Rfam assigns this 107-nucleotide sequence from Prunus dulcis to the family "MIR6274 microRNA precursor family".
NCBI's taxonomy places the organism under Eukaryota, Streptophyta, Rosaceae, Amygdaleae, Prunus.
RNA sequence: GGAUAUCACUUUUUGCUAUCUUCAGCUAUUAACGCAAUGACACGUGAGAUAAUUUUUUUAUGUGUCAUUGUGUAAUUAGUUGAGGAUAGCAAAACAAUAUUAUAUCU
Numbered sequence: 001g002g003a004u005a006u007c008a009c010u011u012u013u014u015g016c017u018a019u020c021u022u023c024a025g026c027u028a029u030u031a032a033c034g035c036a037a038u039g040a041c042a043c044g045u046g047a048g049a050u051a052a053u054u055u056u057u058u059u060a061u062g063u064g065u066c067a068u069u070g071u072g073u074a075a076u077u078a079g080u081u082g083a084g085g086a087u088a089g090c091a092a093a094a095c096a097a098u099a100u101u102a103u104a105u106c107u
Stems, first nucleotide, its partner, number of pairs: 002106004011094009021084008030075001032073018